[Rfam]
Notes
Shown here is an 88-nucleotide RNA from Protea cynaroides, a member of the family "mir-160 microRNA precursor family". A search with the family's covariance model found it, with a score of 81 bits. The literature on the family includes a 2002 paper in Cell by Rhoades et al., "Prediction of plant microRNA targets". NCBI's taxonomy places the organism under Eukaryota, Viridiplantae, Tracheophyta, Proteales, Protea.
RNA sequence: UUGUGCCUGGCUCCCUGUAUGCCACACGUAGAGACCCAUCUGAUUAUGGAUCGGCAGUUGCGGGUGGCGUGCGAGGAGCCAAGCAUAC
Numbered sequence: 001u002u003g004u005g006c007c008u009g010g011c012u013c014c015c016u017g018u019a020u021g022c023c024a025c026a027c028g029u030a031g032a033g034a035c036c037c038a039u040c041u042g043a044u045u046a047u048g049g050a051u052c053g054g055c056a057g058u059u060g061c062g063g064g065u066g067g068c069g070u071g072c073g074a075g076g077a078g079c080c081a082a083g084c085a086u087a088c
Base pairs, nucleotide, nucleotide: 002087003086004085005084006083008081009080010079011078012077013076014075016073017072018071019070020069021068022067023066024065027062028061029060
Dot-bracket structure: .(((((.(((((((.(((((((((..(((..............................)))..))))))))).))))))).))))).